This 107-nucleotide RNA sequence from Bhargavaea cecembensis belongs to the Rfam family "SAM riboswitch aptamer (S box leader)".
Rfam 15.1 lists 9,625 matches to the family in 4,158 species.
A search with the family's covariance model found it, with a score of 82 bits.
Rfam links the family to the GO term regulation of gene expression.
The SAM riboswitch is found upstream of a number of genes which code for proteins involved in methionine or cysteine biosynthesis in Gram-positive bacteria.

RNA sequence: UUCUUAUCCAGAGCGGCGGAGGGACUGGCCCGACGAUGCCCGGCAACCGGCAGGCGAAAGCUUGUAUCGGUGCUAAUUCCUGUGGGAGUGAUCCCAGAAGAUGAGAA
Number, nucleotide and partner (000 for none) at each position: 001u107002u106003c105004u104005u103006a102007u101008c100009c000010a000011g000012a000013g041014c000015g040016g039017c038018g000019g000020a000021g031022g030023g029024a000025c082026u000027g080028g079029c023030c022031c021032g000033a000034c000035g000036a000037u000038g017039c016040c015041c013042g074043g073044c072045a071046a000047c070048c069049g000050g065051c064052a063053g000054g000055c000056g000057a000058a000059a000060g000061c000062u000063u052064g051065u050066a000067u000068c000069g048070g047071u045072g044073c043074u042075a000076a000077u000078u099079c028080c027081u000082g025083u096084g095085g094086g093087a092088g000089u000090g000091a000092u087093c086094c085095c084096a083097g000098a000099a078100g008101a007102u006103g005104a004105g003106a002107a001